RNA sequence: UUGCCCGAGGGGCGCUGCACCGGCGCGGCGGCGGAAUCCGAUGGAUCCCGCCCGCGCCGCCAGGCUCGGGAUUCCUUCUUCAAACGGCGCCCAUCGCCG
Numbered sequence: 001u002u003g004c005c006c007g008a009g010g011g012g013c014g015c016u017g018c019a020c021c022g023g024c025g026c027g028g029c030g031g032c033g034g035a036a037u038c039c040g041a042u043g044g045a046u047c048c049c050g051c052c053c054g055c056g057c058c059g060c061c062a063g064g065c066u067c068g069g070g071a072u073u074c075c076u077u078c079u080u081c082a083a084a085c086g087g088c089g090c091c092c093a094u095c096g097c098c099g
Stems, first nucleotide, its partner, number of pairs: 004070005021059008
Description: Shown here is a 99-nucleotide sequence from Castellaniella defragrans, a member of the family "SAH (S-adenosyl-L-homocysteine) riboswitch aptamer". It scores 51 bits against the family's covariance model. NCBI's taxonomy places the organism under Bacteria, Pseudomonadota, Alcaligenaceae, Castellaniella, Castellaniella defragrans.